[Rfam]
RNA sequence: CGACGGGCCACCCCUCCCCACCGAGGGGCGACCAUCUGAAAGGAUGGAUGGA
Numbered sequence: 001c002g003a004c005g006g007g008c009c010a011c012c013c014c015u016c017c018c019c020a021c022c023g024a025g026g027g028g029c030g031a032c033c034a035u036c037u038g039a040a041a042g043g044a045u046g047g048a049u050g051g052a
Stems, first nucleotide, its partner, number of pairs: 011028006032047006

The record is a 52-nucleotide RNA sequence from Chenggangzhangella methanolivorans, which matches "serC leader" in Rfam. Gene Ontology term of the family: regulation of gene expression. It is annotated as a cis-regulatory leader. From the family's description: This family is a putative regulatory RNA structure that is found upstream of the serC-serA operon in some alpha-proteobacteria. The final stem of the structure overlaps the ribosome binding site of the serC reading frame. Taxonomically the source falls in Chenggangzhangella (Bacteria, Pseudomonadati, Alphaproteobacteria, Methylopilaceae). For this family Rfam cites "Evidence for a second class of S-adenosylmethionine riboswitches and other regulatory RNA motifs in alpha-proteobacteria" (Corbino et al., Genome Biol, 2005).